[Rfam]
RNA: c-di-GMP-I-GGC riboswitch aptamer
RNA sequence: CCUCGAAGAGGCAAACUCCGGGUCACCGGAGGACGCGAAGCCACGGGCUCUCAAAGACAGUGGAACGUUGACAGUGGAACGUUGAACGUCAAACGCCUUCCACUGAAACGUUCAACGUUCCACUGUGUUCCGGAAGCCGGGCUGCCGAAA
Numbered sequence: 001c002c003u004c005g006a007a008g009a010g011g012c013a014a015a016c017u018c019c020g021g022g023u024c025a026c027c028g029g030a031g032g033a034c035g036c037g038a039a040g041c042c043a044c045g046g047g048c049u050c051u052c053a054a055a056g057a058c059a060g061u062g063g064a065a066c067g068u069u070g071a072c073a074g075u076g077g078a079a080c081g082u083u084g085a086a087c088g089u090c091a092a093a094c095g096c097c098u099u100c101c102a103c104u105g106a107a108a109c110g111u112u113c114a115a116c117g118u119u120c121c122a123c124u125g126u127g128u129u130c131c132g133g134a135a136g137c138c139g140g141g142c143u144g145c146c147g148a149a150a
Base pairs, nucleotide, nucleotide: 003147011036012035016031017030018029019028020027021026034136039143040142041141042140044139045138046137048133049132